[Rfam]
RNA: c-di-AMP riboswitch aptamer (ydaO/yuaA leader)
RNA sequence: GCGGCCGGAACGCCGAAUCCCCCGCUCGAGGGGGAACCGGGGACCCAACCCCCUGGGGUGAAUCGACACACGUCGUAGGGCGACUCCUGGCCCGAACCCGUCAGCUAACCCGGUAGGCGCAUGAGGAGAGGAGAG
Numbered sequence: 001g002c003g004g005c006c007g008g009a010a011c012g013c014c015g016a017a018u019c020c021c022c023c024g025c026u027c028g029a030g031g032g033g034g035a036a037c038c039g040g041g042g043a044c045c046c047a048a049c050c051c052c053c054u055g056g057g058g059u060g061a062a063u064c065g066a067c068a069c070a071c072g073u074c075g076u077a078g079g080g081c082g083a084c085u086c087c088u089g090g091c092c093c094g095a096a097c098c099c100g101u102c103a104g105c106u107a108a109c110c111c112g113g114u115a116g117g118c119g120c121a122u123g124a125g126g127a128g129a130g131g132a133g134a135g
Stems, first nucleotide, its partner, number of pairs: 011119004018035006036114006046055002056099003064075004078093004